The family of this 77-nucleotide RNA sequence from Rhodnius prolixus is "mir-252 microRNA precursor family". It scores 72 bits against the family's covariance model. On this family, see Li et al., BMC Genomics 2009: "Direct sequencing and expression analysis of a large number of miRNAs in Aedes aegypti and a multi-species survey of novel mosquito miRNAs". Rfam 15.1 lists 422 matches to the family in 306 species. Clan: mir-252 microRNA precursor family.

[Rfam]
RNA sequence: CCACCAUACUAAGUACUAGUGCCGCAGGAGUUUUACUUUUUUAAGUCCCCCUGCUGUUCGAGUGCUUAACAUUGUGG
Numbered sequence: 001c002c003a004c005c006a007u008a009c010u011a012a013g014u015a016c017u018a019g020u021g022c023c024g025c026a027g028g029a030g031u032u033u034u035a036c037u038u039u040u041u042u043a044a045g046u047c048c049c050c051c052u053g054c055u056g057u058u059c060g061a062g063u064g065c066u067u068a069a070c071a072u073u074g075u076g077g
Stems, first nucleotide, its partner, number of pairs: 001077004006072002010068008019059001024054005030048001
Description
The family's consensus secondary structure was predicted with RNAalifold. Gene Ontology terms of the family: miRNA-mediated post-transcriptional gene silencing and RISC complex.